[Rfam]
RNA sequence: UUGCUUGACUUUCUCCAUGUGCUGGCGUACAAUCCUUUCGUGAUCUUUCACUAUGGCAAUAAAAGUUACUUGGAAUAGACGUUUUGGACCCGAGGGCAGUGCUCGGCAUCUCCACGUGUUUGCGGGGAUGAGACAGGUUAGACAGGCGUAGUAAAGAAGCUGGCUGUUGCUCGGUGGGAAUUCCAGCCGUAUAAUUGGGUCAUAUUUAUAAGUGCAAACGAUGAUUUCGUUGCCGCUAAUGACAACGUGGAAACAGCUUUCGUAGCUGCAGCCUAGUGUGCCUUUAGCGCGGUCUCGGAGGCUUACCGGGCAACAGAAAAGCCUCCAUU
Numbered sequence: 001u002u003g004c005u006u007g008a009c010u011u012u013c014u015c016c017a018u019g020u021g022c023u024g025g026c027g028u029a030c031a032a033u034c035c036u037u038u039c040g041u042g043a044u045c046u047u048u049c050a051c052u053a054u055g056g057c058a059a060u061a062a063a064a065g066u067u068a069c070u071u072g073g074a075a076u077a078g079a080c081g082u083u084u085u086g087g088a089c090c091c092g093a094g095g096g097c098a099g100u101g102c103u104c105g106g107c108a109u110c111u112c113c114a115c116g117u118g119u120u121u122g123c124g125g126g127g128a129u130g131a132g133a134c135a136g137g138u139u140a141g142a143c144a145g146g147c148g149u150a151g152u153a154a155a156g157a158a159g160c161u162g163g164c165u166g167u168u169g170c171u172c173g174g175u176g177g178g179a180a181u182u183c184c185a186g187c188c189g190u191a192u193a194a195u196u197g198g199g200u201c202a203u204a205u206u207u208a209u210a211a212g213u214g215c216a217a218a219c220g221a222u223g224a225u226u227u228c229g230u231u232g233c234c235g236c237u238a239a240u241g242a243c244a245a246c247g248u249g250g251a252a253a254c255a256g257c258u259u260u261c262g263u264a265g266c267u268g269c270a271g272c273c274u275a276g277u278g279u280g281c282c283u284u285u286a287g288c289g290c291g292g293u294c295u296c297g298g299a300g301g302c303u304u305a306c307c308g309g310g311c312a313a314c315a316g317a318a319a320a321g322c323c324u325c326c327a328u329u
Stems, first nucleotide, its partner, number of pairs: 040051004055171005065164003069159003080148003085144002090106005107130007172189004178201002182199003290308004298325006

The family of this 329-nucleotide RNA sequence from Anaplasma phagocytophilum is "Alphaproteobacteria transfer-messenger RNA". The organism belongs to Anaplasma phagocytophilum, within Bacteria. It is annotated as a non-coding RNA gene. Its family is annotated with RNA catabolic process in the Gene Ontology.